[Rfam]
RNA sequence: UGCAAGCAUUAUGAUUCUGUUCGUAUAUUCCCGAAGAUAAGGUCCGGGGGUCUCUACCAGGAGCCGUAAAUUCCUGACUACGAGCGGUGUGCUUCCGCAU
Numbered sequence: 001u002g003c004a005a006g007c008a009u010u011a012u013g014a015u016u017c018u019g020u021u022c023g024u025a026u027a028u029u030c031c032c033g034a035a036g037a038u039a040a041g042g043u044c045c046g047g048g049g050g051u052c053u054c055u056a057c058c059a060g061g062a063g064c065c066g067u068a069a070a071u072u073c074c075u076g077a078c079u080a081c082g083a084g085c086g087g088u089g090u091g092c093u094u095c096c097g098c099a100u
Base pairs, nucleotide, nucleotide: 018086019085020084021083022082023081024080025079029049030048031047032046033045035043058076059075060074061073062072063071
Dot-bracket structure: .................((((((((...(((((.(.......).)))))........((((((.......))))))..))))))))..............